[Rfam]
RNA: Iron response element I
Organism: Jaculus jaculus
RNA sequence: GUGUCUUGCUUCAACAGUGUUUGGACAGAAC
Numbered sequence: 001g002u003g004u005c006u007u008g009c010u011u012c013a014a015c016a017g018u019g020u021u022u023g024g025a026c027a028g029a030a031c
Stems, first nucleotide, its partner, number of pairs: 001031002004029003008026001010025005015019001